[Rfam]
RNA sequence: CGAUGGGCUUCACCCAUCGCUAAUCUAUUUCGCCCCUUCAGGGCU
Dot-bracket structure: (((((((.....)))))))............((((.....)))).
Notes:
A member of the RNA family "Acido-Lenti-1 RNA" from Antarcticibacterium flavum, 45 nucleotides long. The family's RNA type in Rfam is small RNA. The match comes from Rfam's covariance-model search (38 bits). The base pairs follow the family's consensus structure, which is taken from published work.